RNA sequence: AACACGCUCCUUAGAUCCACCUCUUGGGGGCGCUCCUGUACUGUUGAAGUCUGGAGCCCCUCAGCAACUUGCUGGUUGUACAGUGAGAGGUGCUUGAGUCAUUGGCGUGUGAGAGCAGUACACCUGCCCCCUGGCCCCCCAGCUGCACCGGCCCCUCGCUGGCUCCGCCUGCAGGAAGCUCCCGGUGCAGCCUGGCCAGGGGGCGGACACA
Numbered sequence: 001a002a003c004a005c006g007c008u009c010c011u012u013a014g015a016u017c018c019a020c021c022u023c024u025u026g027g028g029g030g031c032g033c034u035c036c037u038g039u040a041c042u043g044u045u046g047a048a049g050u051c052u053g054g055a056g057c058c059c060c061u062c063a064g065c066a067a068c069u070u071g072c073u074g075g076u077u078g079u080a081c082a083g084u085g086a087g088a089g090g091u092g093c094u095u096g097a098g099u100c101a102u103u104g105g106c107g108u109g110u111g112a113g114a115g116c117a118g119u120a121c122a123c124c125u126g127c128c129c130c131c132u133g134g135c136c137c138c139c140c141a142g143c144u145g146c147a148c149c150g151g152c153c154c155c156u157c158g159c160u161g162g163c164u165c166c167g168c169c170u171g172c173a174g175g176a177a178g179c180u181c182c183c184g185g186u187g188c189a190g191c192c193u194g195g196c197c198a199g200g201g202g203g204c205g206g207a208c209a210c211a
Stems, first nucleotide, its partner, number of pairs: 002110007010098005018092007025063006034055003040050003064079006124206005131199001133197004144189008
Rfam assigns this 211-nucleotide RNA from Anguilla anguilla to the family "Small nucleolar RNA SNORA53".
The family has 28 seed sequences and 1,090 matches in Rfam 15.1.
Rfam classes the family as an H/ACA-box small nucleolar RNA.
Rfam describes the family as follows. The snoRNA ACA53 belongs to the H/ACA family of pseudouridylation guide snoRNAs.